Source information:
Rfam assigns this 79-nucleotide RNA sequence from Yersinia mollaretii to the family "sroB RNA". It is annotated as a small RNA. A reference for the family is Vogel et al. (2003), "RNomics in Escherichia coli detects new sRNA species and indicates parallel transcriptional output in bacteria", Nucleic Acids Res.
RNA sequence: CAAGGAGUGAGAGCGCUUAAUAACUAAAAUAAUGAAAAUUCCUCUUUGACUGGCCGAUAGCGAUAUCGGCCAUUUUUUU
Numbered sequence: 001c002a003a004g005g006a007g008u009g010a011g012a013g014c015g016c017u018u019a020a021u022a023a024c025u026a027a028a029a030u031a032a033u034g035a036a037a038a039u040u041c042c043u044c045u046u047u048g049a050c051u052g053g054c055c056g057a058u059a060g061c062g063a064u065a066u067c068g069g070c071c072a073u074u075u076u077u078u079u
Base pairs, nucleotide, nucleotide: 004017005016007014008013025031026030051072052071053070054069055068056067057066058065059064
Dot-bracket structure: ...((.((....)).)).......((...))...................(((((((((....))))))))).......